[Rfam]
RNA: Microsporidia small subunit ribosomal RNA, nucleotides 1456 to 1614
Organism: Chlamydomonas reinhardtii
RNA sequence: GCCCGUCGCUCCUACCGAUUGGGUGUGCUGGUGAAGUGUUCGGAUUGAGCUUGGCUGGGGCAACCUGGCCUUGCUUGAGAAGUUCAUUAAACCCUCCCACCUAGAGGAAGGAGAAGUCGUAACAAGGUUUCCGUAGGUGAACCUGCGGAAGGAUCAUUG
Numbered sequence: 001g002c003c004c005g006u007c008g009c010u011c012c013u014a015c016c017g018a019u020u021g022g023g024u025g026u027g028c029u030g031g032u033g034a035a036g037u038g039u040u041c042g043g044a045u046u047g048a049g050c051u052u053g054g055c056u057g058g059g060g061c062a063a064c065c066u067g068g069c070c071u072u073g074c075u076u077g078a079g080a081a082g083u084u085c086a087u088u089a090a091a092c093c094c095u096c097c098c099a100c101c102u103a104g105a106g107g108a109a110g111g112a113g114a115a116g117u118c119g120u121a122a123c124a125a126g127g128u129u130u131c132c133g134u135a136g137g138u139g140a141a142c143c144u145g146c147g148g149a150a151g152g153a154u155c156a157u158u159g
Stems, first nucleotide, its partner, number of pairs: 001123001004119002007116001009113005015107002020103006027096001030093003035088004128151010